[Rfam]
RNA sequence: AAAUGUUACAGCUCAGCUCUUUUAGAAUUUGUCUAGCAGAUGUCUUAGUCUUCACCAGGACACCCCC
Numbered sequence: 001a002a003a004u005g006u007u008a009c010a011g012c013u014c015a016g017c018u019c020u021u022u023u024a025g026a027a028u029u030u031g032u033c034u035a036g037c038a039g040a041u042g043u044c045u046u047a048g049u050c051u052u053c054a055c056c057a058g059g060a061c062a063c064c065c066c067c
Base pairs, nucleotide, nucleotide: 039064041062042061043060044059045058046057048055049054
Notes:
The family of this 67-nucleotide RNA from Pongo abelii is "U7 small nuclear RNA". Pairs were carried over by alignment from the consensus structure, which was predicted with PFOLD. A search with the family's covariance model found it, with a score of 44 bits.